Shown here is a 208-nucleotide RNA sequence from Clostridium tarantellae, a member of the family "raiA RNA". Rfam classes the family as a riboswitch.

RNA sequence: UAUAGUUAGGUUUGUGGUUGAAAGUCGAUGCCAGUCGCAGGCAAAACGAUCCACGUAAGUUAAACAAAGUUUUAAUGAGCAUGGUGCGGCUUAGAGGUAAGUCCUGCCAGUAAAAUAAACUGAGAGGGUUAGUAGUGAGAGGUUAAUUCCGGGUAGCAAAAACUCCAGCAGGCGAGUGUGGGGUCAAAGACCAGGUCAACUAACUAAA
Numbered sequence: 001u002a003u004a005g006u007u008a009g010g011u012u013u014g015u016g017g018u019u020g021a022a023a024g025u026c027g028a029u030g031c032c033a034g035u036c037g038c039a040g041g042c043a044a045a046a047c048g049a050u051c052c053a054c055g056u057a058a059g060u061u062a063a064a065c066a067a068a069g070u071u072u073u074a075a076u077g078a079g080c081a082u083g084g085u086g087c088g089g090c091u092u093a094g095a096g097g098u099a100a101g102u103c104c105u106g107c108c109a110g111u112a113a114a115a116u117a118a119a120c121u122g123a124g125a126g127g128g129u130u131a132g133u134a135g136u137g138a139g140a141g142g143u144u145a146a147u148u149c150c151g152g153g154u155a156g157c158a159a160a161a162a163c164u165c166c167a168g169c170a171g172g173c174g175a176g177u178g179u180g181g182g183g184u185c186a187a188a189g190a191c192c193a194g195g196u197c198a199a200c201u202a203a204c205u206a207a208a
Stems, first nucleotide, its partner, number of pairs: 001208001003206007012199003015193005028179003031041001033091007050084002058076001060074001062072003082186001103172005108122004126165004135157002141150002